[Rfam]
RNA: Small nucleolar RNA snoR100
RNA sequence: CAAUGAAGGAAGCAUGGUAAUAUGCACAAAAUUUGAAUUGGAUUUCUAGGUCUGCCCUCUCUGAUGCCGUUUGGCUUGAUUUGGGGGCAUGGUUCCGCAGCAAAACA
Numbered sequence: 001c002a003a004u005g006a007a008g009g010a011a012g013c014a015u016g017g018u019a020a021u022a023u024g025c026a027c028a029a030a031a032u033u034u035g036a037a038u039u040g041g042a043u044u045u046c047u048a049g050g051u052c053u054g055c056c057c058u059c060u061c062u063g064a065u066g067c068c069g070u071u072u073g074g075c076u077u078g079a080u081u082u083g084g085g086g087g088c089a090u091g092g093u094u095c096c097g098c099a100g101c102a103a104a105a106c107a
Stems, first nucleotide, its partner, number of pairs: 012025004040090001043087002050080003054075003